[Rfam]
RNA sequence: CUGCGGGGAUGAUCACCCUGAACUCUCUCUUGCUGAUGGGUCAGUGAAGUUUCUGGUUUUCGGUCUGAGUAGC
Numbered sequence: 001c002u003g004c005g006g007g008g009a010u011g012a013u014c015a016c017c018c019u020g021a022a023c024u025c026u027c028u029c030u031u032g033c034u035g036a037u038g039g040g041u042c043a044g045u046g047a048a049g050u051u052u053c054u055g056g057u058u059u060u061c062g063g064u065c066u067g068a069g070u071a072g073c
Stems, first nucleotide, its partner, number of pairs: 001072004
The record is a 73-nucleotide sequence from Cyanoderma ruficeps, which matches "Small nucleolar RNA SNORD26" in Rfam. Its family is annotated with RNA processing and nucleolus in the Gene Ontology. The base pairs follow the family's consensus structure, which was predicted with PFOLD. For this family Rfam cites "A mammalian gene with introns instead of exons generating stable RNA products" (Tycowski et al., Nature, 1996). Rfam classes the family as a C/D-box small nucleolar RNA. The source organism's lineage runs through Eukaryota, Bilateria, Deuterostomia, Vertebrata and Cyanoderma. Its Rfam clan is "SNORD26 clan". It scores 58 bits against the family's covariance model.